Nucleotides: 149
Base pairs, nucleotide, nucleotide: 001023002022003021004020005019006018007017008016034050035049036048037047057128058127059126080088099109100108
Number, partner (000 for none) and nucleotide at each position: 001023u002022u003021c004020c005019g006018g007017u008016u009000g010000u011000c012000c013000a014000a015000a016008g017007a018006c019005c020004g021003g022002g023001g024000u025000u026000a027000c028000u029000a030000a031000a032000g033000a034050g035049g036048c037047a038000c039000a040000c041000c042000u043000u044000c045000a046000u047037u048036g049035c050034c051000g052000g053000c054000a055000g056000u057128g058127c059126g060000g061000a062000c063000g064000g065000g066000u067000u068000c069000u070000c071000c072000c073000a074000u075000c076000c077000a078000a079000g080088c081000c082000a083000a084000g085000g086000c087000a088080g089000a090000c091000a092000a093000a094000g095000c096000g097000a098000a099109c100108c101000g102000a103000g104000g105000c106000c107000g108100g109099g110000c111000a112000a113000g114000g115000c116000c117000a118000a119000g120000g121000u122000u123000c124000a125000c126059c127058g128057c129000c130000g131000c132000g133000a134000g135000a136000c137000g138000g139000c140000g141000a142000u143000c144000c145000g146000u147000g148000g149000u
This 149-nucleotide sequence from Mesorhizobium sp. WSM3876 belongs to the Rfam family "speF leader".
The match comes from Rfam's covariance-model search (86 bits).
On this family, see del Val et al., RNA Biol 2012: "A survey of sRNA families in alpha-proteobacteria".
This family is a putative regulatory RNA structure that is found upstream of the speF gene encoding ornithine decarboxylase in Agrobacterium tumefaciens and other alpha-proteobacteria.
The family's consensus secondary structure was predicted with RNAalifold.